[Rfam]
RNA sequence: CACGUCCGUCUCGUGGACGUGGUGCCCAUCCAAGCCGACUCCCGGUUACCCUGACGCCGUGCGGCAAGCCCCGCCCGUCCGGGGAAGCCGCAUAGCCGACAGCCGUCGCAUCCCAGGGAGCCCUUACAUG
Numbered sequence: 001c002a003c004g005u006c007c008g009u010c011u012c013g014u015g016g017a018c019g020u021g022g023u024g025c026c027c028a029u030c031c032a033a034g035c036c037g038a039c040u041c042c043c044g045g046u047u048a049c050c051c052u053g054a055c056g057c058c059g060u061g062c063g064g065c066a067a068g069c070c071c072c073g074c075c076c077g078u079c080c081g082g083g084g085a086a087g088c089c090g091c092a093u094a095g096c097c098g099a100c101a102g103c104c105g106u107c108g109c110a111u112c113c114c115a116g117g118g119a120g121c122c123c124u125u126a127c128a129u130g
Stems, first nucleotide, its partner, number of pairs: 060092004069084004095109002098107003

A member of the RNA family "Streptomyces-metH RNA" from Streptomyces sp. DSM 40868, 130 nucleotides long. NCBI's taxonomy places the organism under Bacteria, Bacillati, Actinomycetota, Kitasatosporales, Streptomyces.